[Rfam]
RNA sequence: AGAGGUCAUAAGUUGGAGGUCAUAGAAGAAGUGCUUAUGGCGUGGUCCUGUCAAAUUUCAAUGAAUCUGCCAAUUCUACU
Numbered sequence: 001a002g003a004g005g006u007c008a009u010a011a012g013u014u015g016g017a018g019g020u021c022a023u024a025g026a027a028g029a030a031g032u033g034c035u036u037a038u039g040g041c042g043u044g045g046u047c048c049u050g051u052c053a054a055a056u057u058u059c060a061a062u063g064a065a066u067c068u069g070c071c072a073a074u075u076c077u078a079c080u
Stems, first nucleotide, its partner, number of pairs: 016048001018047004024080002027077004031043003052069002055066004